[Rfam]
RNA sequence: CUCUUGGGCCUGCUGCGGACAGAUGAGGUGGAUAUGCGUAUCGAUGGCGCCGGCGGUAAUGAUCUUGUUCUCGCCCGCAAUGACGUCGGUGCAGCUGCCGACAAUCAUGUUGGGCGAGACGCCCUCCAUGACGUCCGGGUUGCCGGCCUUGCCGAUGCCGACAAUGAUGCCGUUCUUGACGCCAAUGUCGGCCUUGACGAUGCCCGUGUAGUCGAUGAUGAGGGCGUUGGUGAUGACCAGGUCGAGCGAGUCGGCGUCGGGGCGGCCCGACGCCUGGCCCAUGCCCUCGCGCAG
Numbered sequence: 001c002u003c004u005u006g007g008g009c010c011u012g013c014u015g016c017g018g019a020c021a022g023a024u025g026a027g028g029u030g031g032a033u034a035u036g037c038g039u040a041u042c043g044a045u046g047g048c049g050c051c052g053g054c055g056g057u058a059a060u061g062a063u064c065u066u067g068u069u070c071u072c073g074c075c076c077g078c079a080a081u082g083a084c085g086u087c088g089g090u091g092c093a094g095c096u097g098c099c100g101a102c103a104a105u106c107a108u109g110u111u112g113g114g115c116g117a118g119a120c121g122c123c124c125u126c127c128a129u130g131a132c133g134u135c136c137g138g139g140u141u142g143c144c145g146g147c148c149u150u151g152c153c154g155a156u157g158c159c160g161a162c163a164a165u166g167a168u169g170c171c172g173u174u175c176u177u178g179a180c181g182c183c184a185a186u187g188u189c190g191g192c193c194u195u196g197a198c199g200a201u202g203c204c205c206g207u208g209u210a211g212u213c214g215a216u217g218a219u220g221a222g223g224g225c226g227u228u229g230g231u232g233a234u235g236a237c238c239a240g241g242u243c244g245a246g247c248g249a250g251u252c253g254g255c256g257u258c259g260g261g262g263c264g265g266c267c268c269g270a271c272g273c274c275u276g277g278c279c280c281a282u283g284c285c286c287u288c289g290c291g292c293a294g
Stems, first nucleotide, its partner, number of pairs: 001294002005291002007288002011163002014160002017075002021071002029052003033049001037046003056068003077152001080149001082147001084145001091143005098138002100135003110128001112126003116122001169278004176269001178267001180265001182262002191225005205214002228259003235252002
The record is a 294-nucleotide sequence from Cordyceps militaris, which matches "5' ureB small RNA" in Rfam. Rfam 15.1 lists 4,812 matches to the family in 4,480 species. Its family is annotated with negative regulation of gene expression in the Gene Ontology. A reference for the family is Wen et al. (2013), "Helicobacter pylori 5'ureB-sRNA, a cis-encoded antisense small RNA, negatively regulates ureAB expression by transcription termination", J Bacteriol. NCBI's taxonomy places the organism under Eukaryota, Opisthokonta, Ascomycota, Cordyceps, Cordyceps militaris.